[Rfam]
Overview: Rfam assigns this 195-nucleotide sequence from Kluyvera cryocrescens to the family "Yersinia sRNA 276".
RNA sequence: GACCGACAUCAGGGAUUCGUUUUGUGAACCGUCGCCGACCGCAAGAUAGGAGUGCAUCCCCAGCUCUUUCAUCUGCUGUUCGCCGAUGACGCGGGUGAUGACGUUUUUGCUGUAAGAAUCAGCCAACUGGCGCGCCUGAGAGGCAAGGUAAGCGGCAUUACAGAUGUUUGGCGGCAUGUUGCCGAGAUCUUUUGC
Numbered sequence: 001g002a003c004c005g006a007c008a009u010c011a012g013g014g015a016u017u018c019g020u021u022u023u024g025u026g027a028a029c030c031g032u033c034g035c036c037g038a039c040c041g042c043a044a045g046a047u048a049g050g051a052g053u054g055c056a057u058c059c060c061c062a063g064c065u066c067u068u069u070c071a072u073c074u075g076c077u078g079u080u081c082g083c084c085g086a087u088g089a090c091g092c093g094g095g096u097g098a099u100g101a102c103g104u105u106u107u108u109g110c111u112g113u114a115a116g117a118a119u120c121a122g123c124c125a126a127c128u129g130g131c132g133c134g135c136c137u138g139a140g141a142g143g144c145a146a147g148g149u150a151a152g153c154g155g156c157a158u159u160a161c162a163g164a165u166g167u168u169u170g171g172c173g174g175c176a177u178g179u180u181g182c183c184g185a186g187a188u189c190u191u192u193u194g195c
Stems, first nucleotide, its partner, number of pairs: 005189002012032001014030001016028005034042002050059001062077003078135002081132005087126001091123002094120003099112002102109002136163003140159002143156002167186006